[Rfam]
RNA sequence: GUGGCGUAAUGAAGGCUUGGUCUGCAAACAGCUUGCUGUGAGGCCAGGCUGGAUGUCCCUGCCAC
Numbered sequence: 001g002u003g004g005c006g007u008a009a010u011g012a013a014g015g016c017u018u019g020g021u022c023u024g025c026a027a028a029c030a031g032c033u034u035g036c037u038g039u040g041a042g043g044c045c046a047g048g049c050u051g052g053a054u055g056u057c058c059c060u061g062c063c064a065c
Stems, first nucleotide, its partner, number of pairs: 001065005014050010029038003

The family of this 65-nucleotide sequence from Oncorhynchus tshawytscha is "Selenocysteine insertion sequence 1". The base pairs follow the family's consensus structure, which is taken from published work. Lineage of the source: Eukaryota > Metazoa > Salmoniformes > Salmonidae > Oncorhynchus. A search with the family's covariance model found it, with a score of 41 bits.